[Rfam]
RNA: Flavo-1 RNA
RNA sequence: CCGCGUUAGGGAUAGCAGCGGCAUCCUUUUUAAAAGGAGACUGAGGAACUCGAAGUCACCGUUUAAAAAGAUAGAGCGCAUAGCCCGACCUGAA
Number, nucleotide and partner (000 for none) at each position: 001c000002c000003g000004c000005g000006u000007u000008a000009g086010g085011g084012a000013u082014a081015g000016c000017a000018g077019c076020g000021g000022c000023a072024u071025c070026c000027u000028u000029u067030u066031u065032a064033a063034a062035a000036g060037g000038a000039g000040a000041c000042u000043g000044a000045g000046g000047a000048a000049c000050u000051c000052g000053a000054a000055g000056u000057c000058a000059c000060c036061g000062u034063u033064u032065a031066a030067a029068a000069a000070g025071a024072u023073a000074g000075a000076g019077c018078g000079c000080a000081u014082a013083g000084c011085c010086c009087g000088a000089c000090c000091u000092g000093a000094a000